[Rfam]
RNA sequence: GGAUGGCCCUCUGGAGAAUCCCAAAGAUGGGUGCCGAAGGUGAAAGCAGAUCUGUGAUCUGUGAAUCUCUCAGGCAAAAGGACAGUGUGAAAGAU
Dot-bracket structure: ......(.(.(((......((((....)))).(((((..(.(...(((((.......)))))....).))).))).......))).).)......